[Rfam]
Nucleotides: 091
Base pairs, nucleotide, nucleotide: 001088002087003086004085
Number, partner (000 for none) and nucleotide at each position: 001088g002087g003086a004085a005000u006000a007000u008000g009000a010000u011000g012000a013000a014000a015000g016000u017000u018000g019000u020000a021000u022000a023000u024000c025000g026000g027000u028000g029000a030000u031000g032000g033000u034000c035000u036000u037000u038000u039000g040000a041000u042000u043000c044000a045000u046000a047000u048000g049000a050000u051000c052000g053000a054000c055000a056000a057000a058000a059000a060000u061000u062000u063000c064000a065000a066000c067000u068000c069000g070000c071000u072000a073000c074000g075000u076000u077000c078000u079000u080000u081000c082000u083000g084000a085004u086003u087002c088001u089000u090000u091000u